[Rfam]
L17-Actino-Proteobacteria ribosomal protein leader: a 56-nucleotide RNA sequence from Nocardioides marmotae. The family's consensus secondary structure is taken from published work. NCBI's taxonomy places the organism under Bacteria, Bacillati, Actinomycetota, Propionibacteriales, Nocardioides. A reference for the family is Eckert and Weinberg (2020), "Discovery of 20 novel ribosomal leader candidates in bacteria and archaea", BMC Microbiol.
RNA sequence: CCGGGGGCGAACCCGCCUCCGGCCUACUACCCCGGUACCUGGUACGGCCGGGGAGG
Numbered sequence: 001c002c003g004g005g006g007g008c009g010a011a012c013c014c015g016c017c018u019c020c021g022g023c024c025u026a027c028u029a030c031c032c033c034g035g036u037a038c039c040u041g042g043u044a045c046g047g048c049c050g051g052g053g054a055g056g
Stems, first nucleotide, its partner, number of pairs: 001022009027055002030053007